[Rfam]
RNA sequence: CCACGAAAAAGGCAAACCAUCGCGAAAGCAUGGGACGCAAAGCCACCGGCCUUCUUCCUGUUAAGACAGGAAAUGGCAGCGGGGUUGCCGAA
Numbered sequence: 001c002c003a004c005g006a007a008a009a010a011g012g013c014a015a016a017c018c019a020u021c022g023c024g025a026a027a028g029c030a031u032g033g034g035a036c037g038c039a040a041a042g043c044c045a046c047c048g049g050c051c052u053u054c055u056u057c058c059u060g061u062u063a064a065g066a067c068a069g070g071a072a073a074u075g076g077c078a079g080c081g082g083g084g085u086u087g088c089c090g091a092a
Stems, first nucleotide, its partner, number of pairs: 012038002017033004022029002041086004046082003049077003056071006
Notes
The family of this 92-nucleotide sequence from Desulfurivibrio alkaliphilus is "c-di-GMP-I riboswitch aptamer". NCBI's taxonomy places the organism under Bacteria, Thermodesulfobacteriota, Desulfobulbales, Desulfurivibrio, Desulfurivibrio alkaliphilus. GEMM was predicted in a large-scale screen for bacterial structured RNA regulatory elements.